[Rfam]
Record summary: The family of this 148-nucleotide RNA from Drosophila albomicans is "Small nucleolar RNA psi18S-1377". Lineage of the source: Eukaryota > Opisthokonta > Brachycera > Cyclorrhapha > Drosophila. Pairs were carried over by alignment from the consensus structure, which was predicted with RNAalifold. Rfam describes the family as follows. psi18S-1377 is a member of the H/ACA class of snoRNA. This family is responsible for guiding the modification of uridines 1377 and 1279 to pseudouridine in Drosophila 18S rRNA.
RNA sequence: UCGUUCUUGUGUUGUUUGCUGAAUUCGCUUCUUCGAUCAGUGAUUGUCAUACAGAACGCAAACUGAAUCCCAAGACAGUUUUUCACUCCACAUUGUUGAGCCUAUUCAAUACCAAGGCUGCUGCAAUACUAACGCGCUGACUACAGAC
Numbered sequence: 001u002c003g004u005u006c007u008u009g010u011g012u013u014g015u016u017u018g019c020u021g022a023a024u025u026c027g028c029u030u031c032u033u034c035g036a037u038c039a040g041u042g043a044u045u046g047u048c049a050u051a052c053a054g055a056a057c058g059c060a061a062a063c064u065g066a067a068u069c070c071c072a073a074g075a076c077a078g079u080u081u082u083u084c085a086c087u088c089c090a091c092a093u094u095g096u097u098g099a100g101c102c103u104a105u106u107c108a109a110u111a112c113c114a115a116g117g118c119u120g121c122u123g124c125a126a127u128a129c130u131a132a133c134g135c136g137c138u139g140a141c142u143a144c145a146g147a148c
Stems, first nucleotide, its partner, number of pairs: 002058006010049002016043007092127005099119004